[Rfam]
RNA sequence: GGCUAGUCCAAAGGUAGCGUCCACAGUCAGUUACAGAUCAGAUCCCUCGUUCUCCUCUUUCCUCCCUUCUCACUACUGCACUUGACUAGUCUUAA
Numbered sequence: 001g002g003c004u005a006g007u008c009c010a011a012a013g014g015u016a017g018c019g020u021c022c023a024c025a026g027u028c029a030g031u032u033a034c035a036g037a038u039c040a041g042a043u044c045c046c047u048c049g050u051u052c053u054c055c056u057c058u059u060u061c062c063u064c065c066c067u068u069c070u071c072a073c074u075a076c077u078g079c080a081c082u083u084g085a086c087u088a089g090u091c092u093u094a095a
Stems, first nucleotide, its partner, number of pairs: 001091008010083002014079002016074002019071001026056001029053002
RNA: Y RNA
Organism: Homo sapiens